[Rfam]
RNA: tRNA
RNA sequence: GGUCGGAUGGUGUAGUCGGUUAUCACGGUUGCUUUACACGCAACAGGUCUCGAGUUCGAUCCUCGGUCGGAUCA
Number, nucleotide and partner (000 for none) at each position: 001g073002g072003u071004c070005g000006g068007a067008u000009g000010g026011u025012g024013u000014a000015g000016u000017c000018g000019g000020u000021u000022a000023u000024c012025a011026c010027g000028g044029u043030u042031g041032c040033u000034u000035u000036a000037c000038a000039c000040g032041c031042a030043a029044c028045a000046g000047g000048u000049c000050u066051c065052g064053a063054g062055u000056u000057c000058g000059a000060u000061c000062c054063u053064c052065g051066g050067u007068c006069g000070g004071a003072u002073c001074a000